[Rfam]
The record is a 369-nucleotide sequence from Sporofaciens musculi, which matches "Bacterial RNase P class A" in Rfam.
RNA sequence: CAAGUAAGACAGGUAAUCGCGUCUGUAAAUGACAAGUCCUAAAGGCUGUCAGGCCGAAAGGCAGCAGAUGAGGAAAGUCCGGGCUUCACAGGGCAGGAUGCCGGAUAACGUCCGGUGGAGGCGACUCCAAGGAAAGUGCAACAGAAAUGAACCGCCAUGUAUAUGGUAAGGGUGGAAGGGCAGUGUAAGAGACUACCGCCCUGCUGGUAACAGUGGGGGCACAUGUAAACCCCAUCCGAAGCAAGACCGGAAAAAGACAAUGUGGCGGCCCGUCACGUCUUAGGUAGGUUGCUUGACCCCGCCGGUAACGGCGGGGCUAGAUAGAUGAUUACCCAACGACAUAACCCGGCUUAUCGUCUUGCUUGCAGC
Numbered sequence: 001c002a003a004g005u006a007a008g009a010c011a012g013g014u015a016a017u018c019g020c021g022u023c024u025g026u027a028a029a030u031g032a033c034a035a036g037u038c039c040u041a042a043a044g045g046c047u048g049u050c051a052g053g054c055c056g057a058a059a060g061g062c063a064g065c066a067g068a069u070g071a072g073g074a075a076a077g078u079c080c081g082g083g084c085u086u087c088a089c090a091g092g093g094c095a096g097g098a099u100g101c102c103g104g105a106u107a108a109c110g111u112c113c114g115g116u117g118g119a120g121g122c123g124a125c126u127c128c129a130a131g132g133a134a135a136g137u138g139c140a141a142c143a144g145a146a147a148u149g150a151a152c153c154g155c156c157a158u159g160u161a162u163a164u165g166g167u168a169a170g171g172g173u174g175g176a177a178g179g180g181c182a183g184u185g186u187a188a189g190a191g192a193c194u195a196c197c198g199c200c201c202u203g204c205u206g207g208u209a210a211c212a213g214u215g216g217g218g219g220c221a222c223a224u225g226u227a228a229a230c231c232c233c234a235u236c237c238g239a240a241g242c243a244a245g246a247c248c249g250g251a252a253a254a255a256g257a258c259a260a261u262g263u264g265g266c267g268g269c270c271c272g273u274c275a276c277g278u279c280u281u282a283g284g285u286a287g288g289u290u291g292c293u294u295g296a297c298c299c300c301g302c303c304g305g306u307a308a309c310g311g312c313g314g315g316g317c318u319a320g321a322u323a324g325a326u327g328a329u330u331a332c333c334c335a336a337c338g339a340c341a342u343a344a345c346c347c348g349g350c351u352u353a354u355c356g357u358c359u360u361g362c363u364u365g366c367a368g369c
Base pairs, nucleotide, nucleotide: 001365002364003363004362005361006360007359008358009357010356011354012333013332014331015330016329017328018327020070021069022068023067024066025065026064075352076351077350079349080348081347082346083345084241085240086239087238091271092270093269094268096237097236098235099234100233101115102114103113104112105111116130117128118127119126120125131232132231136230137229138226139225140224152171153170154167155166156165157164158163179197180196182194183193184192198220199218200217201216202215203214204213205212206211245290246289247288248287254281255280256279257278258277262276263275264274265273266272297316298315299314300313301312302311303310304309
The family's RNA type in Rfam is ribozyme. The family's consensus secondary structure is taken from published work. Lineage of the source: Bacteria > Bacillota > Clostridia > Lachnospiraceae > Sporofaciens.